[Rfam]
RNA: U11 spliceosomal RNA
RNA sequence: UAAAAGGGUGUUUGUCUCUUAUGGCAUGCGGGGACGGCGGCACUUGUGCUCGUCGCCCUGUAGGGUAUGGCAAUCAAGACAUACCCAACACAUAAUUUUUGUUCUCGGGGGCUGUCGGUUGCCAGUCGCACAGGCGCCCCU
Numbered sequence: 001u002a003a004a005a006g007g008g009u010g011u012u013u014g015u016c017u018c019u020u021a022u023g024g025c026a027u028g029c030g031g032g033g034a035c036g037g038c039g040g041c042a043c044u045u046g047u048g049c050u051c052g053u054c055g056c057c058c059u060g061u062a063g064g065g066u067a068u069g070g071c072a073a074u075c076a077a078g079a080c081a082u083a084c085c086c087a088a089c090a091c092a093u094a095a096u097u098u099u100u101g102u103u104c105u106c107g108g109g110g111g112c113u114g115u116c117g118g119u120u121g122c123c124a125g126u127c128g129c130a131c132a133g134g135c136g137c138c139c140c141u
Base pairs, nucleotide, nucleotide: 008091009090010089011088012087013026014025015024016023027062028061029060030059031058032057033056035055036054037053038052039051063086064085065084066083067082068081069080109139110138111137112136114135115134116133118131120130121129122128